[Rfam]
RNA sequence: AUCUAUCUUCGGGGCGGGGUGCAAUUCCCCACCGGCGGUGAUGAAGGAGAUUCCUUCUCAGCCCGCGAGCCUUGGUUAAGGCAGGAUUUGGUGAGAUUCCAAAGCCGACAGUAUAGUCUGGAUGGGAGAAGAUGGAG
Dot-bracket structure: ..((((((((......(((.......))).[[((((((......................[[))))..(((........)))....(((((.......)))))]])).(((....]]))).......))))))))..
Shown here is a 137-nucleotide RNA from Peribacillus asahii, a member of the family "FMN riboswitch aptamer (RFN element)". The RFN element is a highly conserved domain that is found frequently in the 5'-untranslated regions of prokaryotic mRNAs that encode for flavin mononucleotide (FMN) biosynthesis and transport proteins. NCBI's taxonomy places the organism under Bacteria, Bacillati, Bacillota, Bacillaceae, Peribacillus.